[Rfam]
RNA sequence: CCAAACAAGGGGAAUGAAGUGCUCCCCCGGCCACGGCCGAAACCGCGUCUAUGCUGAUGACUUCUGCAUGUUU
Numbered sequence: 001c002c003a004a005a006c007a008a009g010g011g012g013a014a015u016g017a018a019g020u021g022c023u024c025c026c027c028c029g030g031c032c033a034c035g036g037c038c039g040a041a042a043c044c045g046c047g048u049c050u051a052u053g054c055u056g057a058u059g060a061c062u063u064c065u066g067c068a069u070g071u072u073u
Stems, first nucleotide, its partner, number of pairs: 010026004016064005045054003
The family of this 73-nucleotide sequence from Lawsonibacter faecis is "Fluoride riboswitch aptamer (crcB RNA motif)". The match comes from Rfam's covariance-model search (38 bits). The source organism's lineage runs through Bacteria, Bacillati, Clostridia, Eubacteriales and Lawsonibacter.